[Rfam]
RNA: mir-8834 microRNA precursor family
RNA sequence: AGGAACAAGCACAGUGGCGGGGCCAUUUCUGCAGCCCUGGAUUCAGCUCCCACAGUAACUACAGAGCUCUCAACCUGCAGGGCCUGGAGGUUCCGGGGGCGG
Numbered sequence: 001a002g003g004a005a006c007a008a009g010c011a012c013a014g015u016g017g018c019g020g021g022g023c024c025a026u027u028u029c030u031g032c033a034g035c036c037c038u039g040g041a042u043u044c045a046g047c048u049c050c051c052a053c054a055g056u057a058a059c060u061a062c063a064g065a066g067c068u069c070u071c072a073a074c075c076u077g078c079a080g081g082g083c084c085u086g087g088a089g090g091u092u093c094c095g096g097g098g099g100c101g102g
Stems, first nucleotide, its partner, number of pairs: 002094005008085002010082001012080001016075002020071003025068001027066005033060001037055003
Dot-bracket structure: .(((((.(((.(...((..(((..(.(((((.(...(((.............)))....).))))).))))..))....).).))....)))))........